[Rfam]
Description
The record is an 82-nucleotide RNA from Brassicogethes aeneus, which matches "mir-2944 microRNA precursor family" in Rfam. A search with the family's covariance model found it, with a score of 56 bits. The base pairs follow the family's consensus structure, which was predicted with RNAalifold.

RNA sequence: UUCUUUGUGCAGUUAAGGAACUGUUGGUGUGAUGUGAUAUCGAAAGCAUAUCACAGCCACAGUUUCCUAACUGUACAUUGAA
Numbered sequence: 001u002u003c004u005u006u007g008u009g010c011a012g013u014u015a016a017g018g019a020a021c022u023g024u025u026g027g028u029g030u031g032a033u034g035u036g037a038u039a040u041c042g043a044a045a046g047c048a049u050a051u052c053a054c055a056g057c058c059a060c061a062g063u064u065u066c067c068u069a070a071c072u073g074u075a076c077a078u079u080g081a082a
Base pairs, nucleotide, nucleotide: 003080006077007076008075009074010073011072016068017067018066019064020063021062022061024059026057028055029054030053031052032051033050034049035048036047